EFASI RNA: a 129-nucleotide sequence from Xenorhabdus nematophila. Pairs were carried over by alignment from the consensus structure, which is taken from published work.

[Rfam]
RNA sequence: UAGUCAAGAUAUUGAGGCGUUCAACCUAAUUUUAGGCUUGAACGGGGAGCAUUAAAGCGCAGUGCAGAGCACAGAGCGCGCUCCUGCAAUAACUCAACAUGGCCUCGCCCUGCUACACAAUAUCUGACU
Numbered sequence: 001u002a003g004u005c006a007a008g009a010u011a012u013u014g015a016g017g018c019g020u021u022c023a024a025c026c027u028a029a030u031u032u033u034a035g036g037c038u039u040g041a042a043c044g045g046g047g048a049g050c051a052u053u054a055a056a057g058c059g060c061a062g063u064g065c066a067g068a069g070c071a072c073a074g075a076g077c078g079c080g081c082u083c084c085u086g087c088a089a090u091a092a093c094u095c096a097a098c099a100u101g102g103c104c105u106c107g108c109c110c111u112g113c114u115a116c117a118c119a120a121u122a123u124c125u126g127a128c129u
Stems, first nucleotide, its partner, number of pairs: 002129004007125008018044006045085004057079004062072004
Annotation:
Rfam classes the family as a small RNA.